[Rfam]
RNA sequence: CGACCCCGCGCGGGAGAGCCCGGAACCGGCAACGGGUCCGGCGCCGAAGGAGCAAAUCCUCCCCGGAACCUCUCAGGCACAAAGAACCGCGCGGGUGAG
Numbered sequence: 001c002g003a004c005c006c007c008g009c010g011c012g013g014g015a016g017a018g019c020c021c022g023g024a025a026c027c028g029g030c031a032a033c034g035g036g037u038c039c040g041g042c043g044c045c046g047a048a049g050g051a052g053c054a055a056a057u058c059c060u061c062c063c064c065g066g067a068a069c070c071u072c073u074c075a076g077g078c079a080c081a082a083a084g085a086a087c088c089g090c091g092c093g094g095g096u097g098a099g
Stems, first nucleotide, its partner, number of pairs: 006094008020041004043078003046074002050072003057065001
A member of the RNA family "Glycine riboswitch aptamer" from Saccharothrix violaceirubra, 99 nucleotides long.
The pairing is the family consensus, mapped onto this sequence.